The family of this 295-nucleotide RNA from Plutella xylostella is "Nuclear RNase P". The family's RNA type in Rfam is ribozyme. It scores 130 bits against the family's covariance model. The family is grouped with related families in Rfam's "RNaseP clan". The base pairs follow the family's consensus structure, which is taken from published work. Gene Ontology terms of the family: ribonuclease P complex, ribonuclease P activity and tRNA processing.

[Rfam]
RNA sequence: CCAAUGUUAAUCUCGUAUCUGGGGUGCACAAGCAGAGUGCUCGUCACUGUCCUCACCCCGGGAAGGUCUGAGGAAAGGUCUCUGUGUUUUGAAACAUUCUAGCCGGAUGCUUCCCUCACAGGGAAGGUGGGGGAACCAGCAAUGUCAGUGCCGGGCCCAGCCGGGGACCCUCGGCCUGUGGGGCCGGGGAGAGGCUCAAGCCCGAUCACUGUUGGAAACCCCCAUGACCAGCACUUUUAGCAUGAUCUACGAGAUGGCAUCAGUCAUAACUCAAUUCAGACUAGUCUUUCAUUGG
Numbered sequence: 001c002c003a004a005u006g007u008u009a010a011u012c013u014c015g016u017a018u019c020u021g022g023g024g025u026g027c028a029c030a031a032g033c034a035g036a037g038u039g040c041u042c043g044u045c046a047c048u049g050u051c052c053u054c055a056c057c058c059c060g061g062g063a064a065g066g067u068c069u070g071a072g073g074a075a076a077g078g079u080c081u082c083u084g085u086g087u088u089u090u091g092a093a094a095c096a097u098u099c100u101a102g103c104c105g106g107a108u109g110c111u112u113c114c115c116u117c118a119c120a121g122g123g124a125a126g127g128u129g130g131g132g133g134a135a136c137c138a139g140c141a142a143u144g145u146c147a148g149u150g151c152c153g154g155g156c157c158c159a160g161c162c163g164g165g166g167a168c169c170c171u172c173g174g175c176c177u178g179u180g181g182g183g184c185c186g187g188g189g190a191g192a193g194g195c196u197c198a199a200g201c202c203c204g205a206u207c208a209c210u211g212u213u214g215g216a217a218a219c220c221c222c223c224a225u226g227a228c229c230a231g232c233a234c235u236u237u238u239a240g241c242a243u244g245a246u247c248u249a250c251g252a253g254a255u256g257g258c259a260u261c262a263g264u265c266a267u268a269a270c271u272c273a274a275u276u277c278a279g280a281c282u283a284g285u286c287u288u289u290c291a292u293u294g295g
Stems, first nucleotide, its partner, number of pairs: 001295004009287001012253006021059005036048004068279005077229004095109005110126006127225007146211003254267005